[Rfam]
RNA sequence: AGCUGGUCCGAAGGUAGUGAGUUAUCUCAAUUGAUUAUGUAGUCAGUAACAGAUUGAACUUGUUCUAUUCUGUUCCCCCCUUUUUCACUAUUGCACUCUACUAGUCUAAA
Numbered sequence: 001a002g003c004u005g006g007u008c009c010g011a012a013g014g015u016a017g018u019g020a021g022u023u024a025u026c027u028c029a030a031u032u033g034a035u036u037a038u039g040u041a042g043u044c045a046g047u048a049a050c051a052g053a054u055u056g057a058a059c060u061u062g063u064u065c066u067a068u069u070c071u072g073u074u075c076c077c078c079c080c081u082u083u084u085u086c087a088c089u090a091u092u093g094c095a096c097u098c099u100a101c102u103a104g105u106c107u108a109a110a
Base pairs, nucleotide, nucleotide: 002105003104004103005102006101007100010098011097014094015093016089017088018087019086020085021084044072045071046070048068
RNA: Y RNA